[Rfam]
RNA sequence: UCGAGUCGCAACUGGCGUUGAGAUGGGUAACCAUCAGGGAGCGAAGACUCAUCGAUUUGGCCGUACGCCUGGGCCGAACGG
Numbered sequence: 001u002c003g004a005g006u007c008g009c010a011a012c013u014g015g016c017g018u019u020g021a022g023a024u025g026g027g028u029a030a031c032c033a034u035c036a037g038g039g040a041g042c043g044a045a046g047a048c049u050c051a052u053c054g055a056u057u058u059g060g061c062c063g064u065a066c067g068c069c070u071g072g073g074c075c076g077a078a079c080g081g
Base pairs, nucleotide, nucleotide: 001047002046006044007043008042009041012038013037014069015068016067017066018065023034024033025032026031058076059075060074061073062072
RNA: ZMP/ZTP riboswitch aptamer (pfl RNA motif)